[Rfam]
RNA sequence: AGUCUAUGAUGAUAAAGUUUUAGGCUUGUUUCUCAAAACAUUCGCAGUGGCCGCCUGAGAGCUUUCGCCUUCGCCAGGCUUGAGAGCUUCUGCUGUUUUAUCCUUCCUUGGAUGUUUGAGACU
Number, nucleotide and partner (000 for none) at each position: 001a123002g122003u121004c120005u000006a000007u000008g000009a000010u000011g000012a000013u000014a000015a000016a000017g000018u000019u000020u000021u000022a000023g000024g000025c000026u000027u000028g000029u000030u000031u000032c000033u000034c000035a000036a000037a000038a000039c000040a000041u000042u000043c000044g000045c000046a000047g000048u000049g000050g000051c000052c000053g000054c000055c000056u000057g000058a000059g000060a000061g087062c086063u085064u084065u083066c082067g000068c000069c000070u000071u000072c000073g000074c000075c000076a000077g000078g000079c000080u000081u000082g066083a065084g064085a063086g062087c061088u000089u000090c000091u000092g000093c000094u000095g000096u000097u000098u000099u000100a000101u000102c000103c000104u000105u000106c000107c000108u000109u000110g000111g000112a000113u000114g000115u000116u000117u000118g000119a000120g004121a003122c002123u001
RNA: Small nucleolar RNA SNORD14